[Rfam]
Z30 small nucleolar RNA: a 98-nucleotide sequence from Muraenolepis orangiensis. Lineage of the source: Eukaryota > Craniata > Gnathostomata > Osteoglossocephalai > Muraenolepis. By type it is a C/D-box small nucleolar RNA. The family's consensus secondary structure was predicted with PFOLD. For this family Rfam cites "Purified box C/D snoRNPs are able to reproduce site-specific 2'-O-methylation of target RNA in vitro" (Galardi et al., Mol Cell Biol, 2002).

RNA sequence: CUGCAAUGAUGAUGUUGCGAUAAUAAGACCUGGUAUUGCGGCCCCUUUGGGGGUCCGCUCUGACCAGGAUAUGACCACAAAAUCUUCUCUCUGAGCAG
Numbered sequence: 001c002u003g004c005a006a007u008g009a010u011g012a013u014g015u016u017g018c019g020a021u022a023a024u025a026a027g028a029c030c031u032g033g034u035a036u037u038g039c040g041g042c043c044c045c046u047u048u049g050g051g052g053g054u055c056c057g058c059u060c061u062g063a064c065c066a067g068g069a070u071a072u073g074a075c076c077a078c079a080a081a082a083u084c085u086u087c088u089c090u091c092u093g094a095g096c097a098g
Stems, first nucleotide, its partner, number of pairs: 003096002038058004